[Rfam]
RNA sequence: UAACCACCGUCGAGAGACGGUGCUGAAGGGCAGAAGUCAGCAGAGGUCAUAGUACCUGCGCAGAGAUGACUGAGUAGGGAAGGAC
Numbered sequence: 001u002a003a004c005c006a007c008c009g010u011c012g013a014g015a016g017a018c019g020g021u022g023c024u025g026a027a028g029g030g031c032a033g034a035a036g037u038c039a040g041c042a043g044a045g046g047u048c049a050u051a052g053u054a055c056c057u058g059c060g061c062a063g064a065g066a067u068g069a070c071u072g073a074g075u076a077g078g079g080a081a082g083g084a085c
Base pairs, nucleotide, nucleotide: 001025002024005022006021007020008019009018010017011016037044038043046085047084048083055078056077057076058075059074

Shown here is an 85-nucleotide sequence from Paenalicyclobacillus ferrooxydans, a member of the family "Group II catalytic intron D1-D4-1". The organism belongs to Paenalicyclobacillus, within Bacteria. Rfam's curators write: Group II introns are found in rRNA, tRNA and mRNA of organelles in fungi, plants and protists, and also in mRNA in bacteria. A reference for the family is Bonen and Vogel (2001), "The ins and outs of group II introns", Trends Genet.